[Rfam]
RNA sequence: UUACAAUUAAAGGAUAUUUCUCGUGACUGUAAAAACGGGGAUAUCUUUUAAUUGUUUGGU
Numbered sequence: 001u002u003a004c005a006a007u008u009a010a011a012g013g014a015u016a017u018u019u020c021u022c023g024u025g026a027c028u029g030u031a032a033a034a035a036c037g038g039g040g041a042u043a044u045c046u047u048u049u050a051a052u053u054g055u056u057u058g059g060u
Stems, first nucleotide, its partner, number of pairs: 003055008012046010024032001

This 60-nucleotide sequence from Menidia menidia belongs to the Rfam family "mir-7552 microRNA precursor family". Pairs were carried over by alignment from the consensus structure, which was predicted with RNAalifold. The organism belongs to Menidia, within Eukaryota. A search with the family's covariance model found it, with a score of 64 bits.